[Rfam]
RNA sequence: UGCUCCUCUAUGAUGAAUUAUUUCGGAUGUAAAAAAAACAGUAUACCAGCUGAAUUGCGCAAACAAUACCAUGUUGAUAUUUCCGUUGCCUUCCUUCUGAUCGAGC
Numbered sequence: 001u002g003c004u005c006c007u008c009u010a011u012g013a014u015g016a017a018u019u020a021u022u023u024c025g026g027a028u029g030u031a032a033a034a035a036a037a038a039c040a041g042u043a044u045a046c047c048a049g050c051u052g053a054a055u056u057g058c059g060c061a062a063a064c065a066a067u068a069c070c071a072u073g074u075u076g077a078u079a080u081u082u083c084c085g086u087u088g089c090c091u092u093c094c095u096u097c098u099g100a101u102c103g104a105g106c
Base pairs, nucleotide, nucleotide: 005105024085025084026083027082
Small nucleolar RNA Z13/snr52: a 106-nucleotide sequence from Thyridium curvatum. Taxonomically the source falls in Thyridium (Eukaryota, Fungi, leotiomyceta, sordariomyceta). Gene Ontology terms of the family: RNA processing and nucleolus. It is annotated as a C/D-box small nucleolar RNA. The family has 42 seed sequences and 1,203 matches in Rfam 15.1. The base pairs follow the family's consensus structure, which was predicted with PFOLD.